[Rfam]
RNA sequence: UAUAAUCUUCAGGGUAGGGUGUAAAUCCCGACCGGCGGUAAUUCGGUUAAUUCCGUUAGCCCGCGAGCGUUAAGCUGACUCUUGGUGAGAUUCCAGGGCCGACAGUAAAGUCUGGAUGAAAGAAGAUGAUU
Numbered sequence: 001u002a003u004a005a006u007c008u009u010c011a012g013g014g015u016a017g018g019g020u021g022u023a024a025a026u027c028c029c030g031a032c033c034g035g036c037g038g039u040a041a042u043u044c045g046g047u048u049a050a051u052u053c054c055g056u057u058a059g060c061c062c063g064c065g066a067g068c069g070u071u072a073a074g075c076u077g078a079c080u081c082u083u084g085g086u087g088a089g090a091u092u093c094c095a096g097g098g099c100c101g102a103c104a105g106u107a108a109a110g111u112c113u114g115g116a117u118g119a120a121a122g123a124a125g126a127u128g129a130u131u
Stems, first nucleotide, its partner, number of pairs: 003129001005127006017029003031111002033101002035064004059099002067075002081097005103114003
RNA: FMN riboswitch aptamer (RFN element)